[Rfam]
RNA sequence: AGGGGUUACAAGUUUGCGGUUACAGCAGAAGUGUUCACAGCACAGCCCUAUCAGAUUCCUGCGAUUCUAUGAAAUCUGCU
Numbered sequence: 001a002g003g004g005g006u007u008a009c010a011a012g013u014u015u016g017c018g019g020u021u022a023c024a025g026c027a028g029a030a031g032u033g034u035u036c037a038c039a040g041c042a043c044a045g046c047c048c049u050a051u052c053a054g055a056u057u058c059c060u061g062c063g064a065u066u067c068u069a070u071g072a073a074a075u076c077u078g079c080u
Stems, first nucleotide, its partner, number of pairs: 016048001018047004024080006031043003053068003057064002
The family of this 80-nucleotide RNA from Alligator sinensis is "Mammalian CPEB3 ribozyme".
Pairs were carried over by alignment from the consensus structure, which is taken from published work.
The source organism's lineage runs through Eukaryota, Craniata, Archelosauria, Archosauria and Alligator.
The mammalian CPEB3 ribozyme is a self cleaving RNA located in the second intron of the CPEB3 gene which belongs to a family of genes regulating messenger RNA polyadenylation. This ribozyme is highly conserved and found only in mammals. The CPEB3 ribozyme is structurally and biochemically related to the human hepatitis delta virus (HDV) ribozyme and the HDV ribozyme is proposed to have arisen from the human transcriptome.
The match comes from Rfam's covariance-model search (41 bits).